The family of this 55-nucleotide RNA is "Plastid-psbA-3 3UTR RNA". The literature on the family includes a 2023 paper in Plant Commun by Richter et al., "Retrograde signaling in plants: A critical review focusing on the GUN pathway and beyond". Rfam describes the family as follows. Plastid psbA-3 is a non-coding RNA (ncRNA) present in plastids. It was identified in inverted repeat sequences in the 3 prime untranslate region (3UTR) of photosystem II quinone-binding protein (psbA).

[Rfam]
RNA sequence: UAAGGAGCAAUAACCUCUUUUUUGCUUUAGCAAGGGGGUUAUUGCUCCUUAUAUU
Number, nucleotide and partner (000 for none) at each position: 001u051002a050003a049004g048005g047006a046007g045008c044009a043010a042011u041012a040013a039014c038015c000016u000017c000018u000019u000020u035021u034022u033023u032024g031025c000026u000027u000028u000029a000030g000031c024032a023033a022034g021035g020036g000037g000038g014039u013040u012041a011042u010043u009044g008045c007046u006047c005048c004049u003050u002051a001052u000053a000054u000055u000